The record is an 86-nucleotide sequence from Desulfitobacterium dichloroeliminans, which matches "c-di-GMP-I riboswitch aptamer" in Rfam. The family's consensus secondary structure is taken from published work.

Nucleotides: 086
Stems, first nucleotide, its partner, number of pairs: 012037002017032002020029003041080004046076003049071003056065003
Number, partner (000 for none) and nucleotide at each position: 001000u002000a003000a004000u005000g006000g007000u008000u009000g010000g011000g012037g013036c014000a015000a016000a017032c018031u019000u020029u021028g022027c023000g024000a025000a026000a027022g028021c029020a030000c031018a032017g033000g034000a035000c036013g037012c038000u039000a040000a041080a042079g043078c044077u045000a046076u047075g048074g049071a050070u051069c052000u053000a054000a055000g056065g057064u058063c059000g060000a061000c062000a063058g064057a065056c066000u067000a068000g069051g070050a071049u072000c073000g074048c075047c076046a077044g078043g079042c080041u081000a082000c083000a084000a085000g086000u